[Rfam]
RNA: mir-7 microRNA precursor family
Organism: Petromyzon marinus
Nucleotides: 089
Base pairs, nucleotide, nucleotide: 005085008083011080012079013078014077015076016075017074018073020071022069023068024067026066027065028064029063030062031061034059035058036057037056038055039054
Number, partner (000 for none) and nucleotide at each position: 001000g002000a003000g004000c005085u006000g007000u008083g009000g010000g011080c012079c013078a014077u015076g016075u017074g018073g019000a020071a021000g022069a023068c024067u025000u026066g027065u028064g029063a030062u031061u032000g033000u034059g035058u036057u037056g038055u039054u040000g041000u042000a043000u044000c045000g046000c047000u048000a049000a050000a051000g052000c053000a054039g055038g056037c057036a058035a059034c060000a061031a062030a063029u064028c065027a066026c067024a068023g069022u070000g071020u072000u073018c074017c075016g076015c077014a078013u079012g080011g081000a082000g083008c084000g085005g086000u087000g088000c089000u